[Rfam]
RNA sequence: CCCGAUGCCUUAACGGGUCAGGGACUUAAGGACGGGCACCGGUUGUGUCCGGUGCCUCAUACCCAUCUUGCUCUUUGGAGGAUUUGGCUAUGCGCA
Numbered sequence: 001c002c003c004g005a006u007g008c009c010u011u012a013a014c015g016g017g018u019c020a021g022g023g024a025c026u027u028a029a030g031g032a033c034g035g036g037c038a039c040c041g042g043u044u045g046u047g048u049c050c051g052g053u054g055c056c057u058c059a060u061a062c063c064c065a066u067c068u069u070g071c072u073c074u075u076u077g078g079a080g081g082a083u084u085u086g087g088c089u090a091u092g093c094g095c096a
Base pairs, nucleotide, nucleotide: 001022002021004019005018006017008016009015036055037054038053039052040051041050042049056094058092059091060090061089063087064086065085068082069081071080072079073078
Dot-bracket structure: ((.(((.((.....))))).)).............(((((((......)))))))(.((((.(((..((.(((....)))))..))).)))).)..